Rfam assigns this 72-nucleotide sequence from Petrachloros mirabilis to the family "Cyano-1 RNA". Pairs were carried over by alignment from the consensus structure, which is taken from published work. Rfam classes the family as a small RNA.
[Rfam]
RNA sequence: GUUCUAGUGAGGAGUGAUUAUAGAAAAGCUCUUGGAGUCGAAACACGGACAGACGCCCAAGGGCUUUUUUUU
Numbered sequence: 001g002u003u004c005u006a007g008u009g010a011g012g013a014g015u016g017a018u019u020a021u022a023g024a025a026a027a028g029c030u031c032u033u034g035g036a037g038u039c040g041a042a043a044c045a046c047g048g049a050c051a052g053a054c055g056c057c058c059a060a061g062g063g064c065u066u067u068u069u070u071u072u
Stems, first nucleotide, its partner, number of pairs: 025067005032060004037054003